[Rfam]
RNA sequence: UAAAUUCGAAUAUGCUUACCGUAGACAGUAGGUGCUUAUAUAAGCUUAAUUUCCUACCGAGGUGUGAUGAUAGAACGUAUCAAUUGAGUUUCUAUGCUCAAUCUGACUUUAUCAAGCCUUCGUGAUUCUACGGAGGCUUUUCUUAUUGGAUA
Numbered sequence: 001u002a003a004a005u006u007c008g009a010a011u012a013u014g015c016u017u018a019c020c021g022u023a024g025a026c027a028g029u030a031g032g033u034g035c036u037u038a039u040a041u042a043a044g045c046u047u048a049a050u051u052u053c054c055u056a057c058c059g060a061g062g063u064g065u066g067a068u069g070a071u072a073g074a075a076c077g078u079a080u081c082a083a084u085u086g087a088g089u090u091u092c093u094a095u096g097c098u099c100a101a102u103c104u105g106a107c108u109u110u111a112u113c114a115a116g117c118c119u120u121c122g123u124g125a126u127u128c129u130a131c132g133g134a135g136g137c138u139u140u141u142c143u144u145a146u147u148g149g150a151u152a
Base pairs, nucleotide, nucleotide: 028057029056030055031054032053034045035044036043116137117136118135119134120133121132122131123130124129
Rfam assigns this 152-nucleotide sequence from Paenibacillus sp. TCA20 to the family "Ribosomal protein L10 leader". The source organism's lineage runs through Bacteria, Bacillati, Bacilli, Caryophanales and Paenibacillus. This family is a putative r-protein leader autoregulatory structure found in B. subtilis and other low-GC Gram-positive bacteria. Rfam classes the family as a cis-regulatory leader.